RNA sequence: CACCAGGGAUGACUUGCCAUGCUAAUACCGAGGCAUCGCAUGGGGCCGUUGGCUCUAAACGCGGGUGCCAGUGAGUUAAGCUUGCUUCUCACGGGAAGAACUGAGGUGU
Numbered sequence: 001c002a003c004c005a006g007g008g009a010u011g012a013c014u015u016g017c018c019a020u021g022c023u024a025a026u027a028c029c030g031a032g033g034c035a036u037c038g039c040a041u042g043g044g045g046c047c048g049u050u051g052g053c054u055c056u057a058a059a060c061g062c063g064g065g066u067g068c069c070a071g072u073g074a075g076u077u078a079a080g081c082u083u084g085c086u087u088c089u090c091a092c093g094g095g096a097a098g099a100a101c102u103g104a105g106g107u108g109u
Stems, first nucleotide, its partner, number of pairs: 001108004041058001043056003

Annotation
Shown here is a 109-nucleotide RNA sequence from Salvator merianae, a member of the family "Small nucleolar RNA U6-53/MBII-28". It is annotated as a C/D-box small nucleolar RNA. The pairing is the family consensus, mapped onto this sequence. Taxonomically the source falls in Salvator (Eukaryota, Metazoa, Gnathostomata, Laterata). Rfam links the family to the GO terms RNA processing and nucleolus.